[Rfam]
The record is a 73-nucleotide sequence from Crocodylus porosus, which matches "Mammalian CPEB3 ribozyme" in Rfam.
NCBI's taxonomy places the organism under Eukaryota, Gnathostomata, Euteleostomi, Sauropsida, Crocodylus.
Pairs were carried over by alignment from the consensus structure, which is taken from published work.
RNA sequence: CUGCCAUAACAGCCACAGCAGAAGUGCUCAGGUUGCAGCCCUAUCAGAUCCUAAAGGAUCUUCAAAUUCUGCU
Numbered sequence: 001c002u003g004c005c006a007u008a009a010c011a012g013c014c015a016c017a018g019c020a021g022a023a024g025u026g027c028u029c030a031g032g033u034u035g036c037a038g039c040c041c042u043a044u045c046a047g048a049u050c051c052u053a054a055a056g057g058a059u060c061u062u063c064a065a066a067u068u069c070u071g072c073u
Stems, first nucleotide, its partner, number of pairs: 012039002017073007024036003046061006
A search with the family's covariance model found it, with a score of 39 bits.